[Rfam]
RNA sequence: CCGGUUCCGGUUCACGCCCCGAUCGCGCGCAUUGGCGCGCGAGGGCGACCCGGCGACC
Numbered sequence: 001c002c003g004g005u006u007c008c009g010g011u012u013c014a015c016g017c018c019c020c021g022a023u024c025g026c027g028c029g030c031a032u033u034g035g036c037g038c039g040c041g042a043g044g045g046c047g048a049c050c051c052g053g054c055g056a057c058c
Stems, first nucleotide, its partner, number of pairs: 003058003007053004015047005020041002

About this RNA:
This 58-nucleotide RNA from Micromonospora craniellae belongs to the Rfam family "L31-Actinobacteria ribosomal protein leader". The match comes from Rfam's covariance-model search (53 bits).